[Rfam]
RNA sequence: AAGACCUUUUAAAACAGUCCCGUGAGGCUGAAAAGGAAUACGGUGAAGAAUACAUUUGUAUCCUCUAGUGGGUACAUGUAUUCAAAAACCCCUUAUUCUUCUUACGGAGGAUAAGGGUUUUUUUAU
Numbered sequence: 001a002a003g004a005c006c007u008u009u010u011a012a013a014a015c016a017g018u019c020c021c022g023u024g025a026g027g028c029u030g031a032a033a034a035g036g037a038a039u040a041c042g043g044u045g046a047a048g049a050a051u052a053c054a055u056u057u058g059u060a061u062c063c064u065c066u067a068g069u070g071g072g073u074a075c076a077u078g079u080a081u082u083c084a085a086a087a088a089c090c091c092c093u094u095a096u097u098c099u100u101c102u103u104a105c106g107g108a109g110g111a112u113a114a115g116g117g118u119u120u121u122u123u124u125a126u
Stems, first nucleotide, its partner, number of pairs: 005036005015030005048083008058075006086121003090117012
RNA: PyrR binding site
Organism: Gracilibacillus halotolerans